[Rfam]
Nucleotides: 159
Base pairs, nucleotide, nucleotide: 082106083105084104089099090098091097110135111134112133119126120125
Number, partner (000 for none) and nucleotide at each position: 001000u002000a003000a004000g005000c006000u007000c008000u009000c010000a011000u012000u013000c014000a015000g016000a017000c018000a019000a020000a021000c022000a023000a024000a025000c026000a027000u028000c029000u030000u031000c032000c033000a034000u035000c036000c037000u038000c039000c040000g041000g042000u043000u044000u045000c046000u047000a048000u049000a050000c051000c052000a053000a054000c055000a056000c057000c058000a059000a060000c061000a062000a063000u064000c065000c066000c067000a068000u069000c070000a071000a072000c073000a074000u075000g076000u077000c078000u079000c080000c081000c082106u083105g084104c085000a086000c087000c088000u089099g090098c091097a092000a093000c094000u095000g096000c097091u098090g099089c100000u101000c102000c103000g104084g105083c106082g107000a108000g109000u110135g111134c112133a113000a114000c115000u116000c117000c118000u119126g120125c121000u122000c123000u124000u125120g126119c127000a128000g129000c130000u131000c132000u133112u134111g135110c136000a137000a138000g139000g140000u141000a142000u143000g144000u145000c146000c147000g148000c149000a150000c151000c152000a153000a154000a155000c156000u157000a158000c159000c

A. fumigatus sRNA Afu_254: a 159-nucleotide sequence from Aspergillus mulundensis.
By type it is a small RNA.
The base pairs follow the family's consensus structure, which was predicted with WAR.
The organism belongs to Aspergillus subgen. Nidulantes, within Eukaryota.